[Rfam]
RNA sequence: CCUUAGGGUAGAGGUGCUGUAAUUAAUAGUAGUUGCUUUUAGUCGGCGGACAGUGAGAAGUGAGGAAAGGAAUUAUGGCCGAAGAAAAUAGUUUGGUGAAACUAUUUUCUGGCUUUGCAUAUAAUAUAUGCAGGGCUGUCAUCUAAGAUUCUGUAAAUGAUUUACCGAAUUUUAACUAUAUAGAUAUAGUUCCAGCUAUGGGGAUGGAGAGCUACAAAGGGU
Number, nucleotide and partner (000 for none) at each position: 001c000002c000003u000004u000005a000006g000007g000008g215009u214010a213011g212012a000013g000014g000015u000016g079017c078018u077019g076020u075021a074022a073023u072024u071025a000026a000027u000028a000029g000030u000031a000032g000033u063034u062035g061036c060037u059038u058039u057040u000041a000042g000043u000044c000045g000046g000047c000048g000049g000050a000051c000052a000053g000054u000055g000056a000057g039058a038059a037060g036061u035062g034063a033064g000065g000066a000067a000068a000069g000070g000071a024072a023073u022074u021075a020076u019077g018078g017079c016080c000081g000082a000083a110084g109085a108086a107087a106088a105089u104090a103091g102092u101093u100094u099095g000096g000097u000098g000099a094100a093101a092102c091103u090104a089105u088106u087107u086108u085109c084110u083111g137112g136113c135114u134115u133116u132117g131118c130119a129120u128121a127122u000123a000124a000125u000126a000127u121128a120129u119130g118131c117132a116133g115134g114135g113136c112137u111138g000139u207140c206141a205142u204143c203144u202145a000146a000147g000148a000149u000150u000151c000152u000153g000154u000155a000156a000157a000158u000159g000160a000161u000162u000163u000164a000165c000166c000167g000168a000169a000170u000171u000172u000173u000174a000175a000176c000177u000178a000179u000180a000181u000182a000183g000184a000185u000186a000187u000188a000189g000190u000191u000192c000193c000194a000195g000196c000197u000198a000199u000200g000201g000202g144203g143204a142205u141206g140207g139208a000209g000210a000211g000212c011213u010214a009215c008216a000217a000218a000219g000220g000221g000222u000
Lysine riboswitch aptamer: a 222-nucleotide RNA from Clostridium aciditolerans. Riboswitches are metabolite binding domains within certain messenger RNAs that serve as precision sensors for their corresponding targets. Allosteric rearrangement of mRNA structure is mediated by ligand binding, and this results in modulation of gene expression. Gene Ontology term of the family: lysine biosynthetic process. The source organism's lineage runs through Bacteria, Bacillati, Bacillota, Clostridia and Clostridium.